[Rfam]
Rfam assigns this 82-nucleotide RNA sequence from a Caulobacteraceae bacterium to the family "ZMP/ZTP riboswitch aptamer (pfl RNA motif)". The base pairs follow the family's consensus structure, which is taken from published work.

RNA sequence: CCUCGUCUCAGCGACUGGCGCAUCAGGUGGAUCACCACCGGGGAGCUGACGACGCCAUCUGCCGCGCGCCUGGGCGAGACCU
Numbered sequence: 001c002c003u004c005g006u007c008u009c010a011g012c013g014a015c016u017g018g019c020g021c022a023u024c025a026g027g028u029g030g031a032u033c034a035c036c037a038c039c040g041g042g043g044a045g046c047u048g049a050c051g052a053c054g055c056c057a058u059c060u061g062c063c064g065c066g067c068g069c070c071u072g073g074g075c076g077a078g079a080c081c082u
Stems, first nucleotide, its partner, number of pairs: 003054001006051001008049005015042002017070005027038004060076004
Dot-bracket structure: ..(..(.(((((..(([[[[[.....((((....))))..))..))))).)..).....((((..]]]]]..))))......